About this RNA:
The record is a 59-nucleotide RNA from Vagococcus vulneris, which matches "Fluoride riboswitch aptamer (crcB RNA motif)" in Rfam. The source organism's lineage runs through Bacteria, Bacillati, Bacilli, Lactobacillales and Vagococcus.
[Rfam]
RNA sequence: AAACGUGAGAGGGAUGGUGUUCCCUAUAACUGCGUAAGGCUGAUGACACCUAGAAAAUG
Numbered sequence: 001a002a003a004c005g006u007g008a009g010a011g012g013g014a015u016g017g018u019g020u021u022c023c024c025u026a027u028a029a030c031u032g033c034g035u036a037a038g039g040c041u042g043a044u045g046a047c048a049c050c051u052a053g054a055a056a057a058u059g
Stems, first nucleotide, its partner, number of pairs: 010025004016050006032040002